Record summary:
The family of this 139-nucleotide RNA from Mycobacterium leprae is "TPP riboswitch aptamer (THI element)". It is one of the family's seed sequences. Gene Ontology term of the family: thiamine pyrophosphate binding. Vitamin B(1) in its active form thiamin pyrophosphate (TPP) is an essential coenzyme that is synthesised by coupling of pyrimidine and thiazole moieties in bacteria. The source organism's lineage runs through Bacteria, Actinomycetota, Mycobacteriales, Mycobacteriaceae and Mycobacterium.
RNA sequence: ACUUCAGUACACGGGAGUCCCCAGGCAGUCCGAAUCUGCGGGGCUGAGAGUGGGCACAGCCAGAGUGACUGAACCUACCCUUACCCUCCCACACCUGAUCCGGGUCAUGCCGGCGAAGGGAGGUUCAAGAUGCCGUCAG
Numbered sequence: 001a002c003u004u005c006a007g008u009a010c011a012c013g014g015g016a017g018u019c020c021c022c023a024g025g026c027a028g029u030c031c032g033a034a035u036c037u038g039c040g041g042g043g044c045u046g047a048g049a050g051u052g053g054g055c056a057c058a059g060c061c062a063g064a065g066u067g068a069c070u071g072a073a074c075c076u077a078c079c080c081u082u083a084c085c086c087u088c089c090c091a092c093a094c095c096u097g098a099u100c101c102g103g104g105u106c107a108u109g110c111c112g113g114c115g116a117a118g119g120g121a122g123g124u125u126c127a128a129g130a131u132g133c134c135g136u137c138a139g
Stems, first nucleotide, its partner, number of pairs: 007126001009124002011087001013085002016082001017044005052080003094119003100113004